[Rfam]
RNA: U11 spliceosomal RNA
Organism: Thraustotheca clavata
RNA sequence: AAAAAGGGUAGGCCUUUCUUAAGGCUGGACUGCGUGCAGUCACAGGUGAAUCGUGAUCAAGAGAUUUGCCCUGCAUAAUUUCUCCAUUGCUGGUAUGUGUCGGCCCCAUGGGCUAACAUUACCAG
Numbered sequence: 001a002a003a004a005a006g007g008g009u010a011g012g013c014c015u016u017u018c019u020u021a022a023g024g025c026u027g028g029a030c031u032g033c034g035u036g037c038a039g040u041c042a043c044a045g046g047u048g049a050a051u052c053g054u055g056a057u058c059a060a061g062a063g064a065u066u067u068g069c070c071c072u073g074c075a076u077a078a079u080u081u082c083u084c085c086a087u088u089g090c091u092g093g094u095a096u097g098u099g100u101c102g103g104c105c106c107c108a109u110g111g112g113c114u115a116a117c118a119u120u121a122c123c124a125g
Stems, first nucleotide, its partner, number of pairs: 008074005013024004025045003028041005046069007092123004097119004103113004